[Rfam]
RNA sequence: AGAGAGCACCGGGGGAGCCGCUUGGCGGCUGAGAGGGGGCCUUCGCCCCGACUCCUGGGACCUGACCAGGUCAUGCUGGACGGGGAGGUGCCCUUAUCUUCCG
Numbered sequence: 001a002g003a004g005a006g007c008a009c010c011g012g013g014g015g016a017g018c019c020g021c022u023u024g025g026c027g028g029c030u031g032a033g034a035g036g037g038g039g040c041c042u043u044c045g046c047c048c049c050g051a052c053u054c055c056u057g058g059g060a061c062c063u064g065a066c067c068a069g070g071u072c073a074u075g076c077u078g079g080a081c082g083g084g085g086a087g088g089u090g091c092c093c094u095u096a097u098c099u100u101c102c103g
Stems, first nucleotide, its partner, number of pairs: 006091005011055004017029005036049005061084004066079004
TPP riboswitch aptamer (THI element): a 103-nucleotide RNA from Aminithiophilus ramosus. Gene Ontology term of the family: thiamine pyrophosphate binding. The base pairs follow the family's consensus structure, which is taken from published work. A search with the family's covariance model found it, with a score of 56 bits. NCBI's taxonomy places the organism under Bacteria, Synergistota, Synergistia, Synergistales, Aminithiophilus.